[Rfam]
RNA: Small nucleolar RNA snoR2/U65
Organism: Populus alba
RNA sequence: GGUCUGAUGCCACGUCGCCGGUAGCCGAAAAGGCGUUGACCGGCGAUGCUAUGAUUGGACCGAAACCAAUGACAUGUUUCGUUUGCUGAUAGGAAUCUGUGGAUCUCAUCUUAGUUGGUACACGGAGCCGUUUCCUGCGAUUACAUAU
Numbered sequence: 001g002g003u004c005u006g007a008u009g010c011c012a013c014g015u016c017g018c019c020g021g022u023a024g025c026c027g028a029a030a031a032g033g034c035g036u037u038g039a040c041c042g043g044c045g046a047u048g049c050u051a052u053g054a055u056u057g058g059a060c061c062g063a064a065a066c067c068a069a070u071g072a073c074a075u076g077u078u079u080c081g082u083u084u085g086c087u088g089a090u091a092g093g094a095a096u097c098u099g100u101g102g103a104u105c106u107c108a109u110c111u112u113a114g115u116u117g118g119u120a121c122a123c124g125g126a127g128c129c130g131u132u133u134c135c136u137g138c139g140a141u142u143a144c145a146u147a148u
Stems, first nucleotide, its partner, number of pairs: 002060007009052001013048006020041003024034003079140004092129002097125003101121001103119003